[Rfam]
RNA sequence: UCCAGUGGUAGUCAGCUGUCCAGUGCUGUUUGAUGCCUGUGACAGUGUUACACUGCUGGCAGAUAAAGGCACUGCUAUCUAAUACCUCUUGCCACACUCGCUGUUCUGGUGACGUGUGGCACUGGUAUCAGGCAGUGUCAUGCCUCCUUGAGAGUGCGCUGACCACCUUUUUUUCCUGUGGUUUGGUGCUAGUCUGGAAGUAUACAUU
Numbered sequence: 001u002c003c004a005g006u007g008g009u010a011g012u013c014a015g016c017u018g019u020c021c022a023g024u025g026c027u028g029u030u031u032g033a034u035g036c037c038u039g040u041g042a043c044a045g046u047g048u049u050a051c052a053c054u055g056c057u058g059g060c061a062g063a064u065a066a067a068g069g070c071a072c073u074g075c076u077a078u079c080u081a082a083u084a085c086c087u088c089u090u091g092c093c094a095c096a097c098u099c100g101c102u103g104u105u106c107u108g109g110u111g112a113c114g115u116g117u118g119g120c121a122c123u124g125g126u127a128u129c130a131g132g133c134a135g136u137g138u139c140a141u142g143c144c145u146c147c148u149u150g151a152g153a154g155u156g157c158g159c160u161g162a163c164c165a166c167c168u169u170u171u172u173u174u175c176c177u178g179u180g181g182u183u184u185g186g187u188g189c190u191a192g193u194c195u196g197g198a199a200g201u202a203u204a205c206a207u208u
Stems, first nucleotide, its partner, number of pairs: 002059008011051002015046006021039003025036002069138008082128005090121002092118001099111004140203004145198003156189003160185001161183006
RNA: Small nucleolar RNA SNORA74
Organism: Aquarana catesbeiana